Rfam assigns this 110-nucleotide sequence from Rhizobium leguminosarum to the family "EcpR1". It is one of the family's seed sequences.
[Rfam]
RNA sequence: AUACCCCAUGAUGCUCAGGUCCGCCGCAUCUCCUGGGUCGUGGGGUCGGUCGGCUAGUAGGCAAGUUAUAGCGGUUCCUCGUGCCGUUUUGCAUGCUGGCCGACCCCCUU
Number, nucleotide and partner (000 for none) at each position: 001a000002u000003a046004c045005c044006c043007c042008a041009u040010g039011a000012u000013g000014c037015u036016c035017a034018g033019g032020u000021c000022c000023g000024c000025c000026g000027c000028a000029u000030c000031u000032c019033c018034u017035g016036g015037g014038u000039c010040g009041u008042g007043g006044g005045g004046u003047c000048g105049g104050u103051c102052g101053g100054c099055u098056a097057g096058u095059a000060g000061g000062c000063a000064a000065g000066u000067u000068a000069u000070a000071g000072c000073g000074g000075u000076u000077c000078c000079u000080c000081g000082u000083g000084c000085c000086g000087u000088u000089u000090u000091g000092c000093a000094u000095g058096c057097u056098g055099g054100c053101c052102g051103a050104c049105c048106c000107c000108c000109u000110u000
Rfam's curators write: Perviously named SmelC291, SmrC10, or Sra33. According to its overproduction phenotype it was renamed Elongated Cell Phenotype RNA1. Induced by stress,EcpR1 negatively regulates cell cycle master regulatory genes dnaA and gcrA at post-transcriptional level by base pairing between its strongly conserved GC-rich loop and the target mRNAs.
A reference for the family is Reinkensmeier et al. (2011), "Conservation and Occurrence of Trans-Encoded sRNAs in the Rhizobiales", Genes (Basel).
Gene Ontology terms of the family: negative regulation of cell cycle, regulation of translation in response to stress and mRNA binding.